[Rfam]
RNA: Actino-pnp RNA
Organism: Streptomyces caelestis
RNA sequence: GCCGGUCCUCGGUAGUGGCCCCCGGGAGAGUGAACCCCGGGAGCUUCGAUCGAAGACCGGC
Numbered sequence: 001g002c003c004g005g006u007c008c009u010c011g012g013u014a015g016u017g018g019c020c021c022c023c024g025g026g027a028g029a030g031u032g033a034a035c036c037c038c039g040g041g042a043g044c045u046u047c048g049a050u051c052g053a054a055g056a057c058c059g060g061c
Base pairs, nucleotide, nucleotide: 001061002060003059004058005057006056007055009053010052011051012050013049017045018044019043021041022040023039024038025037026036